[Rfam]
RNA sequence: ACAAACCGCUGGGGGCGCUUAAUGCUGAGAUGGUAGCGAUACCUGUCCCUUCGAACCUGUAAGUUAGUACUUGCGUAGGGAAGCAAAAUCCGACAACC
Numbered sequence: 001a002c003a004a005a006c007c008g009c010u011g012g013g014g015g016c017g018c019u020u021a022a023u024g025c026u027g028a029g030a031u032g033g034u035a036g037c038g039a040u041a042c043c044u045g046u047c048c049c050u051u052c053g054a055a056c057c058u059g060u061a062a063g064u065u066a067g068u069a070c071u072u073g074c075g076u077a078g079g080g081a082a083g084c085a086a087a088a089u090c091c092g093a094c095a096a097c098c
Stems, first nucleotide, its partner, number of pairs: 008084003011050004017025002032043004056079004060073004
Shown here is a 98-nucleotide RNA from Firmicutes bacterium CAG:552, a member of the family "TPP riboswitch aptamer (THI element)". Pairs were carried over by alignment from the consensus structure, which is taken from published work. About the family: Vitamin B(1) in its active form thiamin pyrophosphate (TPP) is an essential coenzyme that is synthesised by coupling of pyrimidine and thiazole moieties in bacteria.